[Rfam]
Nucleotides: 054
Stems, first nucleotide, its partner, number of pairs: 013043001014041003020036006
Number, partner (000 for none) and nucleotide at each position: 001000u002000a003000u004000u005000u006000c007000c008000u009000c010000a011000u012000u013043u014041g015040u016039a017000a018000g019000u020036c021035g022034c023033u024032u025031u026000g027000g028000a029000u030000a031025a032024a033023a034022g035021c036020g037000u038000c039016u040015g041014c042000u043013g044000a045000a046000u047000g048000a049000a050000u051000a052000a053000c054000a
Rfam assigns this 54-nucleotide sequence from Ameiurus melas to the family "UnaL2 LINE 3' element".
On this family, see Baba et al., RNA 2004: "Solution structure of an RNA stem-loop derived from the 3' conserved region of eel LINE UnaL2".
Rfam 15.1 lists 493,311 matches to the family in 99 species.
By type it is a cis-regulatory element.
Taxonomically the source falls in Ameiurus (Eukaryota, Gnathostomata, Teleostomi, Neopterygii).